[Rfam]
RNA sequence: AGCCGCACGACCUUCUGGAGUAGUGUUUGUCGCAUAGCGAUGGCU
Numbered sequence: 001a002g003c004c005g006c007a008c009g010a011c012c013u014u015c016u017g018g019a020g021u022a023g024u025g026u027u028u029g030u031c032g033c034a035u036a037g038c039g040a041u042g043g044c045u
Stems, first nucleotide, its partner, number of pairs: 001045004006025002011018002030040004
RNA: COG2908 RNA